[Rfam]
Nucleotides: 046
Stems, first nucleotide, its partner, number of pairs: 006028005016038001
Number, partner (000 for none) and nucleotide at each position: 001000g002000u003000a004000g005000a006028a007027g008026a009025g010024g011000u012000u013000c014000u015000a016038g017000c018000u019000a020000a021000c022000a023000c024010c025009c026008u027007c028006u029000a030000u031000a032000a033000a034000a035000a036000a037000c038016u039000a040000a041000g042000g043000a044000u045000a046000c
The family of this 46-nucleotide sequence from Oceanobacillus oncorhynchi is "PreQ1 (pre queuosine) riboswitch aptamer".
Taxonomically the source falls in Oceanobacillus (Bacteria, Bacillota, Bacilli, Caryophanales).
It scores 45 bits against the family's covariance model.
The family has 43 seed sequences and 873 matches in Rfam 15.1.
This family is a bacterial riboswitch that binds to the metabolite preQ1, an intermediate in the biosynthesis of the modified nucleoside queuosine from GTP. One example of this riboswitch is located in the leader of the Bacillus subtilis ykvJKLM (queCDEF) operon which encodes four genes necessary for queuosine production. PreQ1 binding to the riboswitch aptamer is thought to induce premature transcription termination within the leader to down-regulate expression of these genes.